[Rfam]
RNA sequence: CACGUCAGCGCGAUUUGCUGACGUGGACACAAAUUGCUCUUACGUGGACACGUUUUUUUGCCACGUCAGCAAAGCGCACUGACGUGG
Number, nucleotide and partner (000 for none) at each position: 001c086002a085003c084004g083005u082006c081007a080008g079009c000010g077011c076012g075013a000014u073015u072016u071017g070018c069019u068020g067021a066022c000023g064024u063025g062026g061027a000028c000029a058030c000031a056032a055033a054034u000035u052036g051037c000038u000039c000040u047041u046042a000043c000044g000045u000046g041047g040048a000049c000050a000051c036052g035053u000054u033055u032056u031057u000058u029059u000060g000061c026062c025063a024064c023065g000066u021067c020068a019069g018070c017071a016072a015073a014074g000075c012076g011077c010078a000079c008080u007081g006082a005083c004084g003085u002086g001087g000
RNA: MIR7486 microRNA precursor family
Organism: Gossypium hirsutum